Nucleotides: 297
Stems, first nucleotide, its partner, number of pairs: 002039002004023007028037003043297006050290001052288001054287001057284002059281003063277006070271001072269003076261007087247001094244007101234002104232005110225009119164005128158009137146003172215005181208001183206003190199003
Number, partner (000 for none) and nucleotide at each position: 001000u002039c003038u004023g005022g006021g007020c008019a009018g010017u011000g012000u013000a014000g015000c016000g017010g018009c019008u020007g021006c022005c023004u024000g025000u026000a027000a028037c029036c030035c031000g032000a033000g034000c035030g036029g037028g038003a039002g040000u041000a042000g043297g044296a045295g046294a047293g048292a049000u050290g051000g052288g053000a054287g055000c056000u057284g058283g059281g060280g061279c062000c063277u064276c065275u066274g067273g068272c069000a070271g071000a072269g073268g074267g075000c076261c077260g078259c079258c080257g081256g082255g083000a084000u085000c086000a087247u088000g089000u090000g091000g092000a093000a094244g095243g096242c097241a098240c099239g100238u101234c102233c103000a104232c105231u106230c107229g108228a109000a110225g111224c112223g113222u114221g115220g116219a117218g118217u119164c120163u121162c122161u123160g124000g125000u126000c127000c128158g129157g130156g131155c132154u133153c134152c135151u136150c137146c138145g139144c140000g141000g142000a143000a144139g145138c146137g147000a148000g149000a150136g151135a152134g153133g154132a155131g156130u157129c158128c159000g160123c161122g162121g163120a164119g165000a166000u167000a168000a169000u170000g171000c172215g173214g174213a175212a176211g177000g178000c179000a180000c181208a182000g183206c184205g185204u186000c187000a188000g189000g190199c191198g192197g193000g194000a195000g196000a197192c198191c199190g200000a201000g202000c203000a204185g205184c206183g207000a208181u209000c210000a211176c212175u213174u214173c215172c216000c217118g218117c219116u220115c221114u222113g223112c224111g225110c226000a227000g228108u229107c230106g231105a232104g233102g234101g235000c236000c237000a238100g239099c240098g241097u242096g243095c244094u245000c246000g247087a248000a249000u250000g251000c252000u253000c254000g255082c256081c257080c258079g259078g260077c261076g262000a263000u264000c265000a266000u267074c268073c269072c270000a271070c272068g273067c274066c275065a276064g277063a278000a279061g280060c281059c282000u283058c284057c285000u286000g287054c288052c289000a290050c291000c292048u293047c294046u295045c296044u297043c